[Rfam]
RNA sequence: GCCAAUAUGUAGCCUUUAUCUGCAUUUGCACCUGCACCUACAUACUUGUUUCUCUCAUAUAUGACUUCAAAAACCAAAGCUAGCUUUAAAGCAUGGCAAAAUUGGGAGAUGAACCAAGCAAUAGGUGCAGGUACAGAAGCAGGUGAAUGCCAUUUUGGC
Numbered sequence: 001g002c003c004a005a006u007a008u009g010u011a012g013c014c015u016u017u018a019u020c021u022g023c024a025u026u027u028g029c030a031c032c033u034g035c036a037c038c039u040a041c042a043u044a045c046u047u048g049u050u051u052c053u054c055u056c057a058u059a060u061a062u063g064a065c066u067u068c069a070a071a072a073a074c075c076a077a078a079g080c081u082a083g084c085u086u087u088a089a090a091g092c093a094u095g096g097c098a099a100a101a102u103u104g105g106g107a108g109a110u111g112a113a114c115c116a117a118g119c120a121a122u123a124g125g126u127g128c129a130g131g132u133a134c135a136g137a138a139g140c141a142g143g144u145g146a147a148u149g150c151c152a153u154u155u156u157g158g159c
Stems, first nucleotide, its partner, number of pairs: 001159005007153003012150002015147009025137004030132010053078001055076001058073001060071001062069002
Background: Rfam assigns this 159-nucleotide RNA from Castanea mollissima to the family "MIR530 microRNA precursor family". On this family, see Lu et al., Plant J 2008: "Stress-responsive microRNAs in Populus".